[Rfam]
RNA sequence: GUAGAGGAGAUGGCGCCAGGGACGUGGGCUAGGACCAGGGGCUCCCGGGACCCCCCAGCAUGUGUCCUCUUCUCCCUCCUCCCAG
Numbered sequence: 001g002u003a004g005a006g007g008a009g010a011u012g013g014c015g016c017c018a019g020g021g022a023c024g025u026g027g028g029c030u031a032g033g034a035c036c037a038g039g040g041g042c043u044c045c046c047g048g049g050a051c052c053c054c055c056c057a058g059c060a061u062g063u064g065u066c067c068u069c070u071u072c073u074c075c076c077u078c079c080u081c082c083c084a085g
Base pairs, nucleotide, nucleotide: 004081005080006079007078008077009076012075013074015072019068020067021066022065023064024063025062026061028059038055039053040052041051042049043048